[Rfam]
RNA sequence: CUUCCGCCUUCCCCGCACAGGAGGGCGGAGCGAGGCCCGGCGCUCUCUGCCCUGAUCGCGCCACGGCCUCCAGUCGGCCCACUCCGGCCGCGGGGUCCGCACACCCCGCGCGCCCGGCGGGCCGAUACGGCUCCGGGCUGCGGUGCCGGCCGGGUUGAGGGUCCCGGCCAGGCGC
Numbered sequence: 001c002u003u004c005c006g007c008c009u010u011c012c013c014c015g016c017a018c019a020g021g022a023g024g025g026c027g028g029a030g031c032g033a034g035g036c037c038c039g040g041c042g043c044u045c046u047c048u049g050c051c052c053u054g055a056u057c058g059c060g061c062c063a064c065g066g067c068c069u070c071c072a073g074u075c076g077g078c079c080c081a082c083u084c085c086g087g088c089c090g091c092g093g094g095g096u097c098c099g100c101a102c103a104c105c106c107c108g109c110g111c112g113c114c115c116g117g118c119g120g121g122c123c124g125a126u127a128c129g130g131c132u133c134c135g136g137g138c139u140g141c142g143g144u145g146c147c148g149g150c151c152g153g154g155u156u157g158a159g160g161g162u163c164c165c166g167g168c169c170a171g172g173c174g175c
Stems, first nucleotide, its partner, number of pairs: 003029004008024005032070005039062002042059002044055002074125007084116001130144003134140002148169007